Annotation:
A member of the RNA family "transfer-messenger RNA" from Helicobacter mustelae, 366 nucleotides long. NCBI's taxonomy places the organism under Bacteria, Pseudomonadati, Epsilonproteobacteria, Helicobacteraceae, Helicobacter mustelae. Rfam classes the family as a non-coding RNA gene. The match comes from Rfam's covariance-model search (157 bits). Its Rfam clan is "tRNA clan". Rfam describes the family as follows. Bacterial tmRNA, also known as 10Sa RNA or SsrA, is named for its dual tRNA and mRNA-like properties. Its role is to liberate the mRNA from a stalled ribosome. To accomplish this part of the tmRNA is used as a reading frame that ends in a translation stop signal. The broken mRNA is replaced in the ribosome by the tmRNA and translation of the tmRNA leads to addition of a proteolysis tag to the incomplete protein enabling recognition by a protease. The base pairs follow the family's consensus structure, which is taken from published work.

RNA sequence: GGGGCUGAUUUGGCUUUCGACAGGAAUUGUAUCGCUUGGAUUGCAUGUCGGUAGGCAUACCGUAAUCCUGCCAGCUUAAAUUAAACGCAAACAACAAAAAUUACGCUCCAGCUUACGCAAAAGUAGCGUAGGUUUAUCUCUGUUUUGGAGCCGAUCUUUUUGCCAUAUCUACUAACAAAAAAGGUCGUUAUUUCGUAGGUUGCGCUUUUUUGUGUCAUCAAAAAAGCAAAGAUAAGACUGCUUGCCUGCAAAAGAUUUUGAAAGUUGAAUCUAGCGGGCAAAAAGAUUAUUCAACUUUGCUAAGCAUGUAGAGAUCCUUGUAGAUAUAAUUUUUGGACUGGGGUUCGAUCCCCCACAGCUCCACCA
Numbered sequence: 001g002g003g004g005c006u007g008a009u010u011u012g013g014c015u016u017u018c019g020a021c022a023g024g025a026a027u028u029g030u031a032u033c034g035c036u037u038g039g040a041u042u043g044c045a046u047g048u049c050g051g052u053a054g055g056c057a058u059a060c061c062g063u064a065a066u067c068c069u070g071c072c073a074g075c076u077u078a079a080a081u082u083a084a085a086c087g088c089a090a091a092c093a094a095c096a097a098a099a100a101u102u103a104c105g106c107u108c109c110a111g112c113u114u115a116c117g118c119a120a121a122a123g124u125a126g127c128g129u130a131g132g133u134u135u136a137u138c139u140c141u142g143u144u145u146u147g148g149a150g151c152c153g154a155u156c157u158u159u160u161u162g163c164c165a166u167a168u169c170u171a172c173u174a175a176c177a178a179a180a181a182a183g184g185u186c187g188u189u190a191u192u193u194c195g196u197a198g199g200u201u202g203c204g205c206u207u208u209u210u211u212g213u214g215u216c217a218u219c220a221a222a223a224a225a226g227c228a229a230a231g232a233u234a235a236g237a238c239u240g241c242u243u244g245c246c247u248g249c250a251a252a253a254g255a256u257u258u259u260g261a262a263a264g265u266u267g268a269a270u271c272u273a274g275c276g277g278g279c280a281a282a283a284a285g286a287u288u289a290u291u292c293a294a295c296u297u298u299g300c301u302a303a304g305c306a307u308g309u310a311g312a313g314a315u316c317c318u319u320g321u322a323g324a325u326a327u328a329a330u331u332u333u334u335g336g337a338c339u340g341g342g343g344u345u346c347g348a349u350c351c352c353c354c355a356c357a358g359c360u361c362c363a364c365c366a
Base pairs, nucleotide, nucleotide: 001362002361003360004359005358006357007356021335022334023333024332025331026330027329028328029327030326032323034321035320038317039316040315041314042313044308045307046306047305048304049062050061051060052059053058054072055071056070057069110134111133112132113131114130115129116128117127118126152187153186154185155184156183157182159179160178161177162176167200168199169198170197171196172195204227205226206225207224208223209222210221211220212219214241215240218237244279245278246277247276248275249274251272253270256269257268258267260300262298263297265293339355340354341353342352343351